[Rfam]
RNA sequence: GUGCCAUGGAGAUGAAUUUGUCCCAUAUAUUGAAUUUUCAUCCAUUCAUUUCACUUUGUCAACAAUCUUCUUUGUUACUUGUUGAUCAUUACAGAAUGGAAGAUUU
Numbered sequence: 001g002u003g004c005c006a007u008g009g010a011g012a013u014g015a016a017u018u019u020g021u022c023c024c025a026u027a028u029a030u031u032g033a034a035u036u037u038u039c040a041u042c043c044a045u046u047c048a049u050u051u052c053a054c055u056u057u058g059u060c061a062a063c064a065a066u067c068u069u070c071u072u073u074g075u076u077a078c079u080u081g082u083u084g085a086u087c088a089u090u091a092c093a094g095a096a097u098g099g100a101a102g103a104u105u106u
Stems, first nucleotide, its partner, number of pairs: 041100006058086008
This 106-nucleotide sequence from Aquilegia coerulea belongs to the Rfam family "Small nucleolar RNA snoR99". It scores 84 bits against the family's covariance model. Rfam 15.1 lists 733 matches to the family in 222 species. The literature on the family includes a 2002 paper in Curr Biol by Marker et al., "Experimental RNomics: identification of 140 candidates for small non-messenger RNAs in the plant Arabidopsis thaliana". It is annotated as an H/ACA-box small nucleolar RNA. Its family is annotated with nucleolus and RNA processing in the Gene Ontology.